Rfam assigns this 146-nucleotide RNA from Microcebus murinus to the family "Small nucleolar RNA SNORA12".
The family's consensus secondary structure was predicted with RNAalifold.
Rfam links the family to the GO terms RNA processing and nucleolus.
The match comes from Rfam's covariance-model search (117 bits).
[Rfam]
RNA sequence: GAUUCUGGUGGUUUUCUUUCUGGUACAUUUGGUAAGUUUUCCGGUGGGCCCGACUCUGCCACAUAUAUUAUACCGGGGCUGGCAGAGGCUUGAUGACAGAGGUCUCUCGUAAGCCUUUUCUGCACCAGAGACCGGCUCCUGCACGU
Numbered sequence: 001g002a003u004u005c006u007g008g009u010g011g012u013u014u015u016c017u018u019u020c021u022g023g024u025a026c027a028u029u030u031g032g033u034a035a036g037u038u039u040u041c042c043g044g045u046g047g048g049c050c051c052g053a054c055u056c057u058g059c060c061a062c063a064u065a066u067a068u069u070a071u072a073c074c075g076g077g078g079c080u081g082g083c084a085g086a087g088g089c090u091u092g093a094u095g096a097c098a099g100a101g102g103u104c105u106c107u108c109g110u111a112a113g114c115c116u117u118u119u120c121u122g123c124a125c126c127a128g129a130g131a132c133c134g135g136c137u138c139c140u141g142c143a144c145g146u
Stems, first nucleotide, its partner, number of pairs: 006061006022050003026046004031041001075139006081090003105131004